About this RNA:
Shown here is a 120-nucleotide RNA from Nocardia sp. NRRL S-836, a member of the family "SAM riboswitch aptamer (S box leader)". The match comes from Rfam's covariance-model search (81 bits). NCBI's taxonomy places the organism under Bacteria, Bacillati, Actinomycetota, Mycobacteriales, Nocardia.
RNA sequence: CGCUCAUCCAGAGGGGCAGAGGGACCGGCCCGAAGAAGCCCCGGCAACCGGCGUCAGCGCUAUGCGCAGACGAUCACGGUGCCAAUUCCGACCCGUUCGAUUUCGCGGGAAAGAUGAGGA
Numbered sequence: 001c002g003c004u005c006a007u008c009c010a011g012a013g014g015g016g017c018a019g020a021g022g023g024a025c026c027g028g029c030c031c032g033a034a035g036a037a038g039c040c041c042c043g044g045c046a047a048c049c050g051g052c053g054u055c056a057g058c059g060c061u062a063u064g065c066g067c068a069g070a071c072g073a074u075c076a077c078g079g080u081g082c083c084a085a086u087u088c089c090g091a092c093c094c095g096u097u098c099g100a101u102u103u104c105g106c107g108g109g110a111a112a113g114a115u116g117a118g119g120a
Stems, first nucleotide, its partner, number of pairs: 003118006013042005021031003026090003043083004048079002050075002087112001092109005